This 137-nucleotide RNA sequence from Gottfriedia endophytica belongs to the Rfam family "FMN riboswitch aptamer (RFN element)". Taxonomically the source falls in Gottfriedia (Bacteria, Bacilli, Caryophanales, Bacillaceae). The family has 146 seed sequences and 6,230 matches in Rfam 15.1. About the family: The RFN element is a highly conserved domain that is found frequently in the 5'-untranslated regions of prokaryotic mRNAs that encode for flavin mononucleotide (FMN) biosynthesis and transport proteins.
RNA sequence: AUCUAUCUUCGGGGCGGGGCGAAAUUCCCCACCGGCGGUAAUUAAGCAAAAGCUUAUAAGCCCGCGAGCCUGAAUUUUGGGCAGGAUCUAGUGCGAUUCUAGAGCCGACAGUAUAGUCUGGAUGGGAGAAGAUGGAG
Numbered sequence: 001a002u003c004u005a006u007c008u009u010c011g012g013g014g015c016g017g018g019g020c021g022a023a024a025u026u027c028c029c030c031a032c033c034g035g036c037g038g039u040a041a042u043u044a045a046g047c048a049a050a051a052g053c054u055u056a057u058a059a060g061c062c063c064g065c066g067a068g069c070c071u072g073a074a075u076u077u078u079g080g081g082c083a084g085g086a087u088c089u090a091g092u093g094c095g096a097u098u099c100u101a102g103a104g105c106c107g108a109c110a111g112u113a114u115a116g117u118c119u120g121g122a123u124g125g126g127a128g129a130a131g132a133u134g135g136a137g
Stems, first nucleotide, its partner, number of pairs: 003135008017029003031117002033107002035065004060105002070081001087103005109120003